Rfam assigns this 73-nucleotide sequence from Orycteropus afer to the family "mir-126 microRNA precursor family".

[Rfam]
RNA sequence: CGACAUCGCAUUAUUACUCACGGUACGAGUUUGACGUGUCACAGCGCGUACCAAAAGUAAUAAUGCCUCGUCG
Numbered sequence: 001c002g003a004c005a006u007c008g009c010a011u012u013a014u015u016a017c018u019c020a021c022g023g024u025a026c027g028a029g030u031u032u033g034a035c036g037u038g039u040c041a042c043a044g045c046g047c048g049u050a051c052c053a054a055a056a057g058u059a060a061u062a063a064u065g066c067c068u069c070g071u072c073g
Base pairs, nucleotide, nucleotide: 009065010064011063012062013061014060015059016058017057018056022052023051024050025049026048027047029045
A search with the family's covariance model found it, with a score of 66 bits.